[Rfam]
RNA sequence: CUCGGCCACGGGUAUUCUUGGGUUGAUAAUACGGCUGUUCGAUGUUAUUGCUUGAGAAUACACGUAGCUGAG
Dot-bracket structure: (((((..(((.((((((((((((.(((((((((......)).))))))))))))))))))).)))..)))))
Numbered sequence: 001c002u003c004g005g006c007c008a009c010g011g012g013u014a015u016u017c018u019u020g021g022g023u024u025g026a027u028a029a030u031a032c033g034g035c036u037g038u039u040c041g042a043u044g045u046u047a048u049u050g051c052u053u054g055a056g057a058a059u060a061c062a063c064g065u066a067g068c069u070g071a072g
Stems, first nucleotide, its partner, number of pairs: 001072005008065003012061012025049007032041002
mir-137 microRNA precursor family: a 72-nucleotide sequence from Denticeps clupeoides. Rfam 15.1 lists 1,138 matches to the family in 797 species. The source organism's lineage runs through Eukaryota, Metazoa, Deuterostomia, Craniata and Denticeps. The literature on the family includes a 2010 paper in BMC Genomics by Liu et al., "MicroRNAs of Bombyx mori identified by Solexa sequencing". Its Rfam clan is "mir-137 clan". Its family is annotated with RISC complex and miRNA-mediated post-transcriptional gene silencing in the Gene Ontology. The match comes from Rfam's covariance-model search (85 bits). Pairs were carried over by alignment from the consensus structure, which was predicted with RNAalifold.